[Rfam]
RNA sequence: GUGGGCUACGGAGACAUGAAGCCCAUCACGGUGGGGGGGAAGAUCGUGGGCUCAUUGUGCGCCAUCGCGGGCGUCCUGACCAUCGCGCUCCCGGUCCCGGUCAUAGUGUCCAAC
Numbered sequence: 001g002u003g004g005g006c007u008a009c010g011g012a013g014a015c016a017u018g019a020a021g022c023c024c025a026u027c028a029c030g031g032u033g034g035g036g037g038g039g040a041a042g043a044u045c046g047u048g049g050g051c052u053c054a055u056u057g058u059g060c061g062c063c064a065u066c067g068c069g070g071g072c073g074u075c076c077u078g079a080c081c082a083u084c085g086c087g088c089u090c091c092c093g094g095u096c097c098c099g100g101u102c103a104u105a106g107u108g109u110c111c112a113a114c
Stems, first nucleotide, its partner, number of pairs: 001114002004111002007108003011104001013102003018097001020095001037077004049063003